[Rfam]
RNA sequence: GUAUGAAGUGAUGGCAUCAUCUUUCGGGACUGACCUUUUAUGGAGAAAUUUACAACUUAACUGAUCAUAC
Numbered sequence: 001g002u003a004u005g006a007a008g009u010g011a012u013g014g015c016a017u018c019a020u021c022u023u024u025c026g027g028g029a030c031u032g033a034c035c036u037u038u039u040a041u042g043g044a045g046a047a048a049u050u051u052a053c054a055a056c057u058u059a060a061c062u063g064a065u066c067a068u069a070c
Stems, first nucleotide, its partner, number of pairs: 001070006
The family of this 70-nucleotide sequence from Cyprinus carpio is "Small nucleolar RNA SNORD2". NCBI's taxonomy places the organism under Eukaryota, Actinopteri, Neopterygii, Ostariophysi, Cyprinus carpio. The family's consensus secondary structure was predicted with WAR. Rfam 15.1 lists 1,116 matches to the family in 660 species. By type it is a C/D-box small nucleolar RNA.